[Rfam]
RNA sequence: ACCGUUCGGCGUGACUGGCGGAGCGCAGGCAAUUACCCUGUGUGGACUGCAUCCUGGAUCUGUCGUGGUUAGUUUCCCCGGCAAUCCAUUGCCGCAUUAGCGCAAAGCGUUCCCUAACCACGGGUAGCGUUGAACUGAACCGCCGACCGCCUGGGCACGCCCG
Number, nucleotide and partner (000 for none) at each position: 001a000002c000003c000004g135005u134006u133007c132008g131009g130010c129011g128012u127013g000014a000015c124016u123017g151018g150019c149020g148021g147022a000023g000024c000025g000026c000027a000028g000029g000030c000031a000032a000033u000034u000035a000036c000037c000038c000039u000040g000041u000042g121043u120044g119045g118046a000047c000048u000049g000050c000051a000052u000053c000054c000055u000056g000057g000058a000059u000060c000061u000062g000063u000064c000065g000066u000067g000068g000069u000070u000071a000072g000073u000074u000075u000076c000077c000078c000079c000080g000081g000082c000083a000084a000085u000086c000087c000088a000089u000090u000091g000092c000093c000094g000095c000096a000097u000098u000099a000100g000101c000102g000103c000104a000105a000106a000107g000108c000109g000110u000111u000112c000113c000114c000115u000116a000117a000118c045119c044120a043121c042122g000123g016124g015125u000126a000127g012128c011129g010130u009131u008132g007133a006134a005135c004136u000137g000138a000139a000140c000141c000142g156143c155144c154145g000146a000147c021148c020149g019150c018151c017152u000153g000154g144155g143156c142157a000158c000159g000160c000161c000162c000163g000

Record summary:
The record is a 163-nucleotide RNA sequence, which matches "ZMP/ZTP riboswitch aptamer (pfl RNA motif)" in Rfam. Rfam's curators put it in the seed alignment. Rfam links the family to the GO terms regulation of purine nucleotide biosynthetic process and one-carbon metabolic process. Pairs were carried over by alignment from the consensus structure, which is taken from published work.